[Rfam]
RNA sequence: UGUCGAAGAAGAGGUCGCAAAGAUCAUCAGUAAGCCGGUGGAGCUGAUAAAGCAGUGCUGAAACCGGACGAAAGGGAGAUUUGCCGAAGCAUGCUAUGCCUUUAUGCAGGCGAUGCUGGGCUUUAGUUGAAAAAACUGAAGACUGUCGCUGUAAAAAAUGCAGCGGAGCGCUAUCGAGAUG
Numbered sequence: 001u002g003u004c005g006a007a008g009a010a011g012a013g014g015u016c017g018c019a020a021a022g023a024u025c026a027u028c029a030g031u032a033a034g035c036c037g038g039u040g041g042a043g044c045u046g047a048u049a050a051a052g053c054a055g056u057g058c059u060g061a062a063a064c065c066g067g068a069c070g071a072a073a074g075g076g077a078g079a080u081u082u083g084c085c086g087a088a089g090c091a092u093g094c095u096a097u098g099c100c101u102u103u104a105u106g107c108a109g110g111c112g113a114u115g116c117u118g119g120g121c122u123u124u125a126g127u128u129g130a131a132a133a134a135a136c137u138g139a140a141g142a143c144u145g146u147c148g149c150u151g152u153a154a155a156a157a158a159u160g161c162a163g164c165g166g167a168g169c170g171c172u173a174u175c176g177a178g179a180u181g
Stems, first nucleotide, its partner, number of pairs: 008174001010172002017084005024077002035067005088117005095110001097108003118144002121141008146166007
The family of this 181-nucleotide RNA sequence from Ligilactobacillus ruminis is "Lysine riboswitch aptamer". Pairs were carried over by alignment from the consensus structure, which is taken from published work. Its family is annotated with lysine biosynthetic process in the Gene Ontology. From the family's description: Riboswitches are metabolite binding domains within certain messenger RNAs that serve as precision sensors for their corresponding targets.